[Rfam]
RNA sequence: AACGCGGUAUCGGGAGAGUCUGGCCCCGCCAGCGCCGAAGGAGCAACCGCCCCGUCAAUCUCUCAGGUACAAAGGACCGGUACCGCACG
Numbered sequence: 001a002a003c004g005c006g007g008u009a010u011c012g013g014g015a016g017a018g019u020c021u022g023g024c025c026c027c028g029c030c031a032g033c034g035c036c037g038a039a040g041g042a043g044c045a046a047c048c049g050c051c052c053c054g055u056c057a058a059u060c061u062c063u064c065a066g067g068u069a070c071a072a073a074g075g076a077c078c079g080g081u082a083c084c085g086c087a088c089g
Stems, first nucleotide, its partner, number of pairs: 006084008020032004034068003037064002041062003048054001
Glycine riboswitch aptamer: an 89-nucleotide sequence from Pseudoduganella armeniaca. The match comes from Rfam's covariance-model search (60 bits). This family represents the bacterial glycine riboswitch. Gene Ontology term of the family: glycine biosynthetic process. The base pairs follow the family's consensus structure.